Rfam assigns this 76-nucleotide RNA sequence from Danionella cerebrum to the family "Small nucleolar RNA SNORD59".
[Rfam]
RNA sequence: CCUUCUUAUGAUGAUUUACUGUUUGACUUUCGUUCUUCUGAGUGUAAUGAAGCCAAACUAAAUUCUGAAUUACAGG
Numbered sequence: 001c002c003u004u005c006u007u008a009u010g011a012u013g014a015u016u017u018a019c020u021g022u023u024u025g026a027c028u029u030u031c032g033u034u035c036u037u038c039u040g041a042g043u044g045u046a047a048u049g050a051a052g053c054c055a056a057a058c059u060a061a062a063u064u065c066u067g068a069a070u071u072a073c074a075g076g
Stems, first nucleotide, its partner, number of pairs: 001076003006072001

Notes
The family is grouped with related families in Rfam's "SNORD59 clan". Rfam links the family to the GO terms RNA processing and nucleolus. The literature on the family includes a 2002 paper in Mol Cell Biol by Galardi et al., "Purified box C/D snoRNPs are able to reproduce site-specific 2'-O-methylation of target RNA in vitro". The family's RNA type in Rfam is C/D-box small nucleolar RNA.